[Rfam]
RNA: BsrC
Organism: Bacillus sp. 1NLA3E
RNA sequence: AUUUCCUAAAACAAUGAAAGCCCUACCUCUCUUUCAUCCUUACGGCUCCUGAGCCGCUCCAGUGUGAAUCAGGUUUUUCAAAUAAAU
Numbered sequence: 001a002u003u004u005c006c007u008a009a010a011a012c013a014a015u016g017a018a019a020g021c022c023c024u025a026c027c028u029c030u031c032u033u034u035c036a037u038c039c040u041u042a043c044g045g046c047u048c049c050u051g052a053g054c055c056g057c058u059c060c061a062g063u064g065u066g067a068a069u070c071a072g073g074u075u076u077u078u079c080a081a082a083u084a085a086a087u
Stems, first nucleotide, its partner, number of pairs: 034067003039062002043056005